[Rfam]
RNA sequence: ACUCUUCACUAGGGGAGCCGUCAUUCGGCUGAGAAAAGCAGGAAGCUUUGACCCUUAUGACCUGAUCUAGAUCAUACUAGCGUAGGGAAGUGAAGCGAGUGGUCA
Numbered sequence: 001a002c003u004c005u006u007c008a009c010u011a012g013g014g015g016a017g018c019c020g021u022c023a024u025u026c027g028g029c030u031g032a033g034a035a036a037a038g039c040a041g042g043a044a045g046c047u048u049u050g051a052c053c054c055u056u057a058u059g060a061c062c063u064g065a066u067c068u069a070g071a072u073c074a075u076a077c078u079a080g081c082g083u084a085g086g087g088a089a090g091u092g093a094a095g096c097g098a099g100u101g102g103u104c105a
Base pairs, nucleotide, nucleotide: 006093007092008091009090010089011055012054013053014052016049017029018028019027020026036048037047038046039045061086062085063084064083067080068079069078070077
RNA: TPP riboswitch aptamer (THI element)